[Rfam]
RNA sequence: GGGGGUGGAUAGGUGCUGGUGUGCCUACCGGUCUUCAAAACCGUGUUGACGGGCUGAAACCCCGUUGGGUGGGUUCGAUUCCCACACACUCCC
Numbered sequence: 001g002g003g004g005g006u007g008g009a010u011a012g013g014u015g016c017u018g019g020u021g022u023g024c025c026u027a028c029c030g031g032u033c034u035u036c037a038a039a040a041c042c043g044u045g046u047u048g049a050c051g052g053g054c055u056g057a058a059a060c061c062c063c064g065u066u067g068g069g070u071g072g073g074u075u076c077g078a079u080u081c082c083c084a085c086a087c088a089c090u091c092c093c
Base pairs, nucleotide, nucleotide: 001093002092003091004090005089006088007087008085011026012025013024014023015022016021027046028045029043030042031041032040048066049065050064051063052062070084071083072082073081
Dot-bracket structure: ((((((((..((((((....))))))((((((.......)))).)).(((((.........)))))...((((.......))))).)))))))
Shown here is a 93-nucleotide RNA sequence from Caloramator australicus, a member of the family "Selenocysteine transfer RNA". It scores 69 bits against the family's covariance model. Lineage of the source: Bacteria > Eubacteriales > Clostridiaceae > Caloramator > Caloramator australicus.